SAM riboswitch aptamer (S box leader): a 105-nucleotide RNA from Chryseobacterium taklimakanense.
The match comes from Rfam's covariance-model search (82 bits).
RNA sequence: AGCUUAUUCAGAAAGGUGGAGGGACUUGACCCUACGAAACCUUGGCAACCUGCCCAGUGCGGUAAGGUGCCAAUUUCAACCCGACAAAGGCGGGAAAAAUAAGUC
Numbered sequence: 001a002g003c004u005u006a007u008u009c010a011g012a013a014a015g016g017u018g019g020a021g022g023g024a025c026u027u028g029a030c031c032c033u034a035c036g037a038a039a040c041c042u043u044g045g046c047a048a049c050c051u052g053c054c055c056a057g058u059g060c061g062g063u064a065a066g067g068u069g070c071c072a073a074u075u076u077c078a079a080c081c082c083g084a085c086a087a088a089g090g091c092g093g094g095a096a097a098a099a100u101a102a103g104u105c
Stems, first nucleotide, its partner, number of pairs: 002104007013043005021032003026079004044071004049067002051064004075097001080094004085089001